RNA sequence: UGUCAUGCUUUUCCACAGCUUUCUUGAACUUCUUGCAUCUAAAUUCUCUUUGAAUUUGGCGGAUAUAAAAGAAGCUCAAGAAAGCUGUGGGAGGACAUGGCAA
Numbered sequence: 001u002g003u004c005a006u007g008c009u010u011u012u013c014c015a016c017a018g019c020u021u022u023c024u025u026g027a028a029c030u031u032c033u034u035g036c037a038u039c040u041a042a043a044u045u046c047u048c049u050u051u052g053a054a055u056u057u058g059g060c061g062g063a064u065a066u067a068a069a070a071g072a073a074g075c076u077c078a079a080g081a082a083a084g085c086u087g088u089g090g091g092a093g094g095a096c097a098u099g100g101c102a103a
Stems, first nucleotide, its partner, number of pairs: 003100005013090003017086006024079004029074005

The record is a 103-nucleotide RNA from Actinidia chinensis, which matches "MIR396 microRNA precursor family" in Rfam. NCBI's taxonomy places the organism under Eukaryota, Euphyllophyta, Mesangiospermae, Ericales, Actinidia chinensis. For this family Rfam cites "Cloning and characterization of microRNAs from rice" (Sunkar et al., Plant Cell, 2005). Gene Ontology terms of the family: miRNA-mediated post-transcriptional gene silencing and RISC complex. The match comes from Rfam's covariance-model search (88 bits).